[Rfam]
RNA: MIR398 microRNA precursor family
RNA sequence: AGGAGCCCUACAGGGUCGGCCGGAGAUCACAUGUGGGCGUCUGUUUUCACGAGCAUCAAAUGUGUUCUCAGGUCGCCCCUGCCGGACUUUC
Numbered sequence: 001a002g003g004a005g006c007c008c009u010a011c012a013g014g015g016u017c018g019g020c021c022g023g024a025g026a027u028c029a030c031a032u033g034u035g036g037g038c039g040u041c042u043g044u045u046u047u048c049a050c051g052a053g054c055a056u057c058a059a060a061u062g063u064g065u066u067c068u069c070a071g072g073u074c075g076c077c078c079c080u081g082c083c084g085g086a087c088u089u090u091c
Base pairs, nucleotide, nucleotide: 007085008084011081012080013079014078017075018074019073023069024068025067026066028064029063030062031061032060